[Rfam]
RNA sequence: UUCGGUCCUCGGUAGUGGCUCACGGACCCCCCGGCCCGUCCCGGACGGAGCCGGCGGGAACCGCCGUGGACCUCGAUCGAAGACCGCC
Number, nucleotide and partner (000 for none) at each position: 001u000002u000003c086004g085005g084006u083007c082008c000009u080010c079011g078012g077013u076014a000015g000016u000017g072018g071019c000020u069021c068022a067023c066024g065025g064026a000027c000028c000029c000030c000031c000032c000033g000034g000035c000036c000037c000038g000039u000040c000041c000042c000043g000044g000045a000046c000047g000048g000049a000050g000051c000052c000053g000054g000055c000056g000057g000058g000059a000060a000061c000062c000063g000064c025065c024066g023067u022068g021069g020070a000071c018072c017073u000074c000075g000076a013077u012078c011079g010080a009081a000082g007083a006084c005085c004086g003087c000088c000

Rfam assigns this 88-nucleotide RNA from Cellulosimicrobium sp. MM to the family "Actino-pnp RNA". A search with the family's covariance model found it, with a score of 50 bits. The family's RNA type in Rfam is cis-regulatory element. The base pairs follow the family's consensus structure, which is taken from published work.